[Rfam]
RNA sequence: GGAAGAGUGGUCGAGUGGUUUAUGGCACUGGUCUUGAAAACCAGCGAGGGUGCAAGUUCUCCGUGGGUUCAAAUCCCACCUCUUCCG
Numbered sequence: 001g002g003a004a005g006a007g008u009g010g011u012c013g014a015g016u017g018g019u020u021u022a023u024g025g026c027a028c029u030g031g032u033c034u035u036g037a038a039a040a041c042c043a044g045c046g047a048g049g050g051u052g053c054a055a056g057u058u059c060u061c062c063g064u065g066g067g068u069u070c071a072a073a074u075c076c077c078a079c080c081u082c083u084u085c086c087g
Stems, first nucleotide, its partner, number of pairs: 001086007010026004028044005063079005